[Rfam]
Rfam assigns this 97-nucleotide RNA sequence to the family "GP20-a RNA". Rfam classes the family as a cis-regulatory element.

RNA sequence: AUAAGAUGCGGUGGACAUCAUAUAAAAAUCACCACAAUCUAACCGGAAACUGUAAUCCGGAAAUACAAAUAACAGAUAUAAAAGAUUGGAGGACGGU
Numbered sequence: 001a002u003a004a005g006a007u008g009c010g011g012u013g014g015a016c017a018u019c020a021u022a023u024a025a026a027a028a029u030c031a032c033c034a035c036a037a038u039c040u041a042a043c044c045g046g047a048a049a050c051u052g053u054a055a056u057c058c059g060g061a062a063a064u065a066c067a068a069a070u071a072a073c074a075g076a077u078a079u080a081a082a083a084g085a086u087u088g089g090a091g092g093a094c095g096g097u
Stems, first nucleotide, its partner, number of pairs: 005019004010033005035088005043060005